Background:
The record is a 41-nucleotide RNA from Gadus morhua, which matches "MAT2A 3'UTR stem loop D" in Rfam. A search with the family's covariance model found it, with a score of 51 bits.
[Rfam]
RNA sequence: UCUGGAGCUUGGUGUGGAUACAGAGAAGCCAAGCUCUCAGA
Numbered sequence: 001u002c003u004g005g006a007g008c009u010u011g012g013u014g015u016g017g018a019u020a021c022a023g024a025g026a027a028g029c030c031a032a033g034c035u036c037u038c039a040g041a
Base pairs, nucleotide, nucleotide: 001041002040003039004038005037007035009032010031011030012029013028
Dot-bracket structure: (((((.(.(((((..............)))))..).)))))